[Rfam]
The family of this 32-nucleotide sequence from Fictibacillus gelatini is "L31-Firmicutes ribosomal protein leader".
The family's RNA type in Rfam is cis-regulatory leader.
The sequence is in the family's curated seed alignment.
The source organism's lineage runs through Bacteria, Bacilli, Caryophanales, Fictibacillus and Fictibacillus gelatini.
A reference for the family is Eckert and Weinberg (2020), "Discovery of 20 novel ribosomal leader candidates in bacteria and archaea", BMC Microbiol.
Its Rfam clan is "Ribosomal Protein L31 Leader clan".
RNA sequence: CUCUGUUUCCACAGGAUUCAGGGCAGAAGGAG
Numbered sequence: 001c002u003c004u005g006u007u008u009c010c011a012c013a014g015g016a017u018u019c020a021g022g023g024c025a026g027a028a029g030g031a032g
Base pairs, nucleotide, nucleotide: 001023002022003021004020005019008016009015010014